RNA sequence: AGAUAACCAGAUCGGAAAGGGAACUGCAGAACCCAGAACGAGAAAGUUACUCAGGAAGAGACCAGAAAGGUGAAAGUUCAAGGUAGCUUAGCAUGCAAAAAAGCAAACUUGACCACCGAGAGUAAAAGAGAUCUUACUCAAGGAUGCAGAAGGUAAUCUCACUCCUGACACCUACUGAUCUCGAUUUGAAAAAAA
Number, nucleotide and partner (000 for none) at each position: 001a051002g050003a000004u049005a000006a000007c000008c000009a000010g000011a000012u041013c040014g039015g000016a000017a000018a000019g000020g000021g000022a000023a000024c000025u000026g000027c000028a000029g000030a000031a000032c000033c000034c000035a000036g000037a000038a000039c014040g013041a012042g000043a000044a000045a000046g000047u000048u000049a004050c002051u001052c000053a000054g000055g000056a000057a000058g000059a000060g000061a000062c000063c000064a176065g175066a000067a000068a173069g172070g000071u000072g000073a000074a000075a000076g000077u000078u112079c111080a110081a109082g108083g000084u106085a000086g104087c103088u102089u101090a000091g000092c000093a000094u000095g000096c000097a000098a000099a000100a000101a089102a088103g087104c086105a000106a084107a000108c082109u081110u080111g079112a078113c000114c000115a000116c000117c000118g000119a000120g139121a138122g137123u136124a135125a000126a000127a000128g160129a159130g158131a157132u156133c000134u000135u124136a123137c122138u121139c120140a000141a000142g000143g000144a000145u000146g000147c167148a166149g165150a000151a163152g162153g000154u000155a000156a132157u131158c130159u129160c128161a000162c152163u151164c000165c149166u148167g147168a000169c000170a000171c000172c069173u068174a000175c065176u064177g000178a000179u000180c000181u000182c000183g000184a000185u000186u000187u000188g000189a000190a000191a000192a000193a000194a000195a000